[Rfam]
RNA: MIR807 microRNA precursor family
Organism: Oryza meridionalis
RNA sequence: AAUCCCACUAUCAAUGAAUGGAUUCACCCAUGAUAUGAUAUGGCUGUUCCACUUAGGAUAAGGACGUGGCAUCCUAUAAUUAUCAGCCAUUGCAAGAAAUUAAUAGGAUGCCACAUCAUCAUCCUAGGUGAAACAACCACGUCAUCUCACAGGUGAAUCCAUUCAUUGAUAAUGUGGUU
Numbered sequence: 001a002a003u004c005c006c007a008c009u010a011u012c013a014a015u016g017a018a019u020g021g022a023u024u025c026a027c028c029c030a031u032g033a034u035a036u037g038a039u040a041u042g043g044c045u046g047u048u049c050c051a052c053u054u055a056g057g058a059u060a061a062g063g064a065c066g067u068g069g070c071a072u073c074c075u076a077u078a079a080u081u082a083u084c085a086g087c088c089a090u091u092g093c094a095a096g097a098a099a100u101u102a103a104u105a106g107g108a109u110g111c112c113a114c115a116u117c118a119u120c121a122u123c124c125u126a127g128g129u130g131a132a133a134c135a136a137c138c139a140c141g142u143c144a145u146c147u148c149a150c151a152g153g154u155g156a157a158u159c160c161a162u163u164c165a166u167u168g169a170u171a172a173u174g175u176g177g178u179u
Base pairs, nucleotide, nucleotide: 001179002178003177004176006174007173009171010170011169012168013167014166015165017163018162019161021159022158023157024156025155026154027153028152031149032148033147035145036144037143038142039141041139042138043137045135046134047133048132051129052128054126055125057123058122063117064116069111070110071109072108073107074106075105076104080103081102082101089100090099